[Rfam]
RNA sequence: GUGGGCUACGGGGACAUGCACCCCGUCACGAUAGGAGGGAAAAUCGUGGGAUCCCUGUGCGCAAUCGCGGGCGUGCUGACGAUCGCCCUGCCUGUGCCCGUGAUCGUGUCCAAC
Dot-bracket structure: ((.((.(((((..((..((((...............((.(.........(...........)...........).))................))))..))..))))).)).))
RNA: Potassium channel RNA editing signal